Overview:
Shown here is a 67-nucleotide sequence from Piaya cayana, a member of the family "Small nucleolar RNA SNORD30". The family has 20 seed sequences and 367 matches in Rfam 15.1. The pairing is the family consensus, mapped onto this sequence. Rfam classes the family as a C/D-box small nucleolar RNA. Gene Ontology terms of the family: RNA processing and nucleolus. It scores 44 bits against the family's covariance model.
RNA sequence: CCACAUGAUGAAUCUUCUGGAAUCUCGUUCGGCUGAUGCUGCUGCUGAUCCCCCAAUUCUGACAGGG
Numbered sequence: 001c002c003a004c005a006u007g008a009u010g011a012a013u014c015u016u017c018u019g020g021a022a023u024c025u026c027g028u029u030c031g032g033c034u035g036a037u038g039c040u041g042c043u044g045c046u047g048a049u050c051c052c053c054c055a056a057u058u059c060u061g062a063c064a065g066g067g
Stems, first nucleotide, its partner, number of pairs: 025048003030044004